[Rfam]
RNA sequence: AACAUUCUAAUUUCAUAUAAUCAUAUAAUCGCGGGAAUAUGGCCUGCAAGUUUCUACCGGUUUACCGUAAAUAAACCGACUAUGAGCAGCGAUAAAUGGUGA
Numbered sequence: 001a002a003c004a005u006u007c008u009a010a011u012u013u014c015a016u017a018u019a020a021u022c023a024u025a026u027a028a029u030c031g032c033g034g035g036a037a038u039a040u041g042g043c044c045u046g047c048a049a050g051u052u053u054c055u056a057c058c059g060g061u062u063u064a065c066c067g068u069a070a071a072u073a074a075a076c077c078g079a080c081u082a083u084g085a086g087c088a089g090c091g092a093u094a095a096a097u098g099g100u101g102a
Stems, first nucleotide, its partner, number of pairs: 018088001021085005029049001031047005058078007
RNA: Purine riboswitch aptamer